[Rfam]
RNA: Purine riboswitch aptamer
RNA sequence: CCAUAGUAAUUCAAUUGCACUCAUAUAAUCGCAGGGAUAUGGCCUGCAAGUUUCUACCGGAUUACCGUAAAUGAUCCGACUAUGAGUAAGCGAACGUGCGGA
Numbered sequence: 001c002c003a004u005a006g007u008a009a010u011u012c013a014a015u016u017g018c019a020c021u022c023a024u025a026u027a028a029u030c031g032c033a034g035g036g037a038u039a040u041g042g043c044c045u046g047c048a049a050g051u052u053u054c055u056a057c058c059g060g061a062u063u064a065c066c067g068u069a070a071a072u073g074a075u076c077c078g079a080c081u082a083u084g085a086g087u088a089a090g091c092g093a094a095c096g097u098g099c100g101g102a
Base pairs, nucleotide, nucleotide: 019087020086021085022084023083024082025081029049031047032046033045034044035043058078059077060076061075062074063073064072